[Rfam]
RNA sequence: GGGGGUGAAUGGUCUCGACUUCGGUCGGGUGACCAGGGGAAGCGAGCCGAGGAAGGCAACGAUGAGCUCGUUAACCAUCCGUUGCAAACCACACAAGCGCCGAUUCCAAUCAGCGCGACUUCGCUCUCGCUGCCUAACAGCAGCUAGACGAGUCUGUCAGCCCGGGUUCGUCAUCGGCCCGGAUCCUGGCAUCAGCUAGAUGACUCACUGCACGCACCGGUCGCGGGUGCGUGUGGGACACCAAACAGCGACUGGGCCUGUCACGUCGACUUGUUCGCAUGAUCGACGGGGUCGAGCAGAGGCAACGCGGACUGCGCUCGGAGAAGCCCUGGUGAUGCGUCGAAGGACGCGGGUUCGAUUCCCGCCACCUCCACCA
Numbered sequence: 001g002g003g004g005g006u007g008a009a010u011g012g013u014c015u016c017g018a019c020u021u022c023g024g025u026c027g028g029g030u031g032a033c034c035a036g037g038g039g040a041a042g043c044g045a046g047c048c049g050a051g052g053a054a055g056g057c058a059a060c061g062a063u064g065a066g067c068u069c070g071u072u073a074a075c076c077a078u079c080c081g082u083u084g085c086a087a088a089c090c091a092c093a094c095a096a097g098c099g100c101c102g103a104u105u106c107c108a109a110u111c112a113g114c115g116c117g118a119c120u121u122c123g124c125u126c127u128c129g130c131u132g133c134c135u136a137a138c139a140g141c142a143g144c145u146a147g148a149c150g151a152g153u154c155u156g157u158c159a160g161c162c163c164g165g166g167u168u169c170g171u172c173a174u175c176g177g178c179c180c181g182g183a184u185c186c187u188g189g190c191a192u193c194a195g196c197u198a199g200a201u202g203a204c205u206c207a208c209u210g211c212a213c214g215c216a217c218c219g220g221u222c223g224c225g226g227g228u229g230c231g232u233g234u235g236g237g238a239c240a241c242c243a244a245a246c247a248g249c250g251a252c253u254g255g256g257c258c259u260g261u262c263a264c265g266u267c268g269a270c271u272u273g274u275u276c277g278c279a280u281g282a283u284c285g286a287c288g289g290g291g292u293c294g295a296g297c298a299g300a301g302g303c304a305a306c307g308c309g310g311a312c313u314g315c316g317c318u319c320g321g322a323g324a325a326g327c328c329c330u331g332g333u334g335a336u337g338c339g340u341c342g343a344a345g346g347a348c349g350c351g352g353g354u355u356c357g358a359u360u361c362c363c364g365c366c367a368c369c370u371c372c373a374c375c376a
Stems, first nucleotide, its partner, number of pairs: 001372007019345007028336001032333007043320005048070004056085006125148003129144005155191006162182007170204006208236009219253006255293005268284002273312004280305001349365005
RNA: transfer-messenger RNA